[Rfam]
RNA: Small nucleolar RNA SNORA5
RNA sequence: UGCAGCUUUGUCAAAUUCAGUGCCUCCUCCCCGGUGGAGGCCACUGGCCAAAAUGGCUGCCACAGUGAAAUUGUAGUUCAUGGGCCCCACUGUUCUCUAACAUGCCUACUGGGGAUAAAUAUGUACUACAAACAUUA
Numbered sequence: 001u002g003c004a005g006c007u008u009u010g011u012c013a014a015a016u017u018c019a020g021u022g023c024c025u026c027c028u029c030c031c032c033g034g035u036g037g038a039g040g041c042c043a044c045u046g047g048c049c050a051a052a053a054u055g056g057c058u059g060c061c062a063c064a065g066u067g068a069a070a071u072u073g074u075a076g077u078u079c080a081u082g083g084g085c086c087c088c089a090c091u092g093u094u095c096u097c098u099a100a101c102a103u104g105c106c107u108a109c110u111g112g113g114g115a116u117a118a119a120u121a122u123g124u125a126c127u128a129c130a131a132a133c134a135u136u137a
Stems, first nucleotide, its partner, number of pairs: 002060004018046005023040005073129005078123001085114005